Shown here is a 126-nucleotide RNA sequence from Jaculus jaculus, a member of the family "Small nucleolar RNA SNORA77". Lineage of the source: Eukaryota > Deuterostomia > Dipodidae > Dipodinae > Jaculus. A reference for the family is Schattner et al. (2006), "A computational screen for mammalian pseudouridylation guide H/ACA RNAs", RNA. It is annotated as an H/ACA-box small nucleolar RNA. Its family is annotated with RNA processing and nucleolus in the Gene Ontology. About the family: ACA63 (SNORA77) is a member of the H/ACA class of snoRNAs that guide the sites of modification of uridines to pseudouridines. This snoRNA was identified by computational screening and its expression in mouse experimentally verified by Northern blot and primer extension analysis. ACA63 is proposed to guide the pseudouridylation of 18S rRNA U814.
Nucleotides: 126
Base pairs, nucleotide, nucleotide: 001054002053003052004051005050006049014041015040016039017038018037019036020035022033023032024031066117067116068115069114070113071112072111074109075108076107077106078105079104082102083101084100086098
Number, partner (000 for none) and nucleotide at each position: 001054g002053c003052a004051g005050a006049c007000u008000c009000a010000c011000u012000c013000u014041g015040c016039a017038c018037c019036u020035g021000a022033c023032u024031g025000c026000a027000g028000c029000c030000c031024c032023a033022g034000g035020c036019a037018g038017g039016u040015g041014c042000u043000u044000u045000u046000u047000c048000u049006g050005u051004c052003u053002g054001c055000c056000a057000a058000a059000g060000a061000a062000a063000u064000g065000u066117u067116c068115c069114a070113g071112g072111g073000u074109g075108c076107u077106g078105u079104g080000g081000c082102u083101g084100u085000g086098c087000c088000u089000u090000g091000g092000c093000c094000u095000g096000u097000g098086g099000g100084a101083c102082g103000a104079u105078g106077c107076a108075g109074c110000u111072u112071c113070c114069u115068g116067g117066a118000a119000a120000c121000a122000g123000c124000a125000u126000g